This 110-nucleotide RNA sequence from Austrofundulus limnaeus belongs to the Rfam family "Small nucleolar RNA SNORD46". By type it is a C/D-box small nucleolar RNA. Lineage of the source: Eukaryota > Euteleostomi > Neopterygii > Atherinomorphae > Austrofundulus. It scores 59 bits against the family's covariance model. U40 is a C/D box small nucleolar RNA, also known as snoZ153 in plants. The human sequence has also been annotated in the sequence databases as U46. U40 is encoded in intron 2 of the ribosomal protein S8 gene in human, and is hypothesised to guide methylation of 2'-O-ribose residues on 28S ribosomal RNA. This family represents vertebrate U40. Its family is annotated with RNA processing and nucleolus in the Gene Ontology. Pairs were carried over by alignment from the consensus structure.
RNA sequence: AGCGUGGGUGAUGAAAGCUUGACCUUAGGUGGGUUUUGUUUUUGUGCCGUUUUGGCUCAAAGCUUUGGGCCCAUCAAUGCUAGGACUUGUCAUAGUUACACUGACACGCU
Numbered sequence: 001a002g003c004g005u006g007g008g009u010g011a012u013g014a015a016a017g018c019u020u021g022a023c024c025u026u027a028g029g030u031g032g033g034u035u036u037u038g039u040u041u042u043u044g045u046g047c048c049g050u051u052u053u054g055g056c057u058c059a060a061a062g063c064u065u066u067g068g069g070c071c072c073a074u075c076a077a078u079g080c081u082a083g084g085a086c087u088u089g090u091c092a093u094a095g096u097u098a099c100a101c102u103g104a105c106a107c108g109c110u
Stems, first nucleotide, its partner, number of pairs: 001110006